[Rfam]
RNA sequence: GAAGCACGCCAGACCGUCGCUGGUGCCAUAUGGGAAACUUGGCACUGGAGGAACGUCCGGACUGCACAGGACAGCGUAGCAGCUAACGGCUGCCCACCGUGAGGUGAGGAUCAGAGCAACAGAGACGAGUCCGAGUGGGAGCCCGCUUCGGAGUGUUCUGUGAGGCGCCAGCGCAAGCUGGCGAGAAGGCAGCGCGAGCUGUCCGAACCCGGCGAAAGCCGGGUCCGCACAGCCACCCCGGGCGGACAAGUUCCGCUCGGGGUGAAACGGGCAAUCUCUACGCGCAGCAAUACCAAGUAGGCCAGCGUUGAUGUGGUUCCGCAGAGCUGGCGGGUAGGUAGCAUCGAGCCGGGUGGGCGACCCCCGGCCCAGAGUAAUGGCGGUCACACCCGGGCAACCGGGUGCACAGAAUCCGGCUUAUCGGCGCGCUUCACAC
Numbered sequence: 001g002a003a004g005c006a007c008g009c010c011a012g013a014c015c016g017u018c019g020c021u022g023g024u025g026c027c028a029u030a031u032g033g034g035a036a037a038c039u040u041g042g043c044a045c046u047g048g049a050g051g052a053a054c055g056u057c058c059g060g061a062c063u064g065c066a067c068a069g070g071a072c073a074g075c076g077u078a079g080c081a082g083c084u085a086a087c088g089g090c091u092g093c094c095c096a097c098c099g100u101g102a103g104g105u106g107a108g109g110a111u112c113a114g115a116g117c118a119a120c121a122g123a124g125a126c127g128a129g130u131c132c133g134a135g136u137g138g139g140a141g142c143c144c145g146c147u148u149c150g151g152a153g154u155g156u157u158c159u160g161u162g163a164g165g166c167g168c169c170a171g172c173g174c175a176a177g178c179u180g181g182c183g184a185g186a187a188g189g190c191a192g193c194g195c196g197a198g199c200u201g202u203c204c205g206a207a208c209c210c211g212g213c214g215a216a217a218g219c220c221g222g223g224u225c226c227g228c229a230c231a232g233c234c235a236c237c238c239c240g241g242g243c244g245g246a247c248a249a250g251u252u253c254c255g256c257u258c259g260g261g262g263u264g265a266a267a268c269g270g271g272c273a274a275u276c277u278c279u280a281c282g283c284g285c286a287g288c289a290a291u292a293c294c295a296a297g298u299a300g301g302c303c304a305g306c307g308u309u310g311a312u313g314u315g316g317u318u319c320c321g322c323a324g325a326g327c328u329g330g331c332g333g334g335u336a337g338g339u340a341g342c343a344u345c346g347a348g349c350c351g352g353g354u355g356g357g358c359g360a361c362c363c364c365c366g367g368c369c370c371a372g373a374g375u376a377a378u379g380g381c382g383g384u385c386a387c388a389c390c391c392g393g394g395c396a397a398c399c400g401g402g403u404g405c406a407c408a409g410a411a412u413c414c415g416g417c418u419u420a421u422c423g424g425c426g427c428g429c430u431u432c433a434c435a436c
Base pairs, nucleotide, nucleotide: 001432002431003430004429005428007426008425009424010423011421012385013384014383015382016381017380018379020048021047022046023045024044025043026042027041028040053419055417057416058415059414060413061412062287063286064285065284069318070317074283075282076281077280078279079093080092081091082090083089094108095106096105097104098103109278110277114276115275116272117271131261132260133258134257135256136255137254138253139252140251291340292339293338294337301331302330303329304328305327306326312323313322314321315320348368349367350366351365352364353363355362356361